[Rfam]
RNA: MIR9563 microRNA precursor family
Organism: Brassica napus
RNA sequence: GGAAUAUAAGAACCCAUCUCUUAACUUUUAACUAAAAAAACUAAGAACCGUCUCUUAAAACUCUUAUUUAAAAGCCGGUUCUUAGCUUUUUUUUAGUUAAAAGUUAAGAGACAAGUUCUUAUAUUCU
Numbered sequence: 001g002g003a004a005u006a007u008a009a010g011a012a013c014c015c016a017u018c019u020c021u022u023a024a025c026u027u028u029u030a031a032c033u034a035a036a037a038a039a040a041c042u043a044a045g046a047a048c049c050g051u052c053u054c055u056u057a058a059a060a061c062u063c064u065u066a067u068u069u070a071a072a073a074g075c076c077g078g079u080u081c082u083u084a085g086c087u088u089u090u091u092u093u094u095a096g097u098u099a100a101a102a103g104u105u106a107a108g109a110g111a112c113a114a115g116u117u118c119u120u121a122u123a124u125u126c127u
Stems, first nucleotide, its partner, number of pairs: 001127013017111023041085007